[Rfam]
RNA sequence: UCACAAAUUCAAGGCCAUAGCAAAAGCGCUUGUGGCAUGGUCCUGUCAAAUUCUAAUGAAUCUGCAAAUUCUGCU
Numbered sequence: 001u002c003a004c005a006a007a008u009u010c011a012a013g014g015c016c017a018u019a020g021c022a023a024a025a026g027c028g029c030u031u032g033u034g035g036c037a038u039g040g041u042c043c044u045g046u047c048a049a050a051u052u053c054u055a056a057u058g059a060a061u062c063u064g065c066a067a068a069u070u071c072u073g074c075u
Base pairs, nucleotide, nucleotide: 013043014042015040016039019075020074021073022072024070025069026038028036047064048063050061051060052059053058